[Rfam]
RNA: Small nucleolar RNA U6-53/MBII-28
Organism: Octodon degus
RNA sequence: CCCCUGAGAUGUCAUGCUAAGACUGAUACUAGGUAGGGAGUUUACAUCUUCCUUGCAUGUUUUGAUGAAUUCUGCUUCUUACAAAUCUCGCUGAGGGGC
Numbered sequence: 001c002c003c004c005u006g007a008g009a010u011g012u013c014a015u016g017c018u019a020a021g022a023c024u025g026a027u028a029c030u031a032g033g034u035a036g037g038g039a040g041u042u043u044a045c046a047u048c049u050u051c052c053u054u055g056c057a058u059g060u061u062u063u064g065a066u067g068a069a070u071u072c073u074g075c076u077u078c079u080u081a082c083a084a085a086u087c088u089c090g091c092u093g094a095g096g097g098g099c
Stems, first nucleotide, its partner, number of pairs: 001098004035049003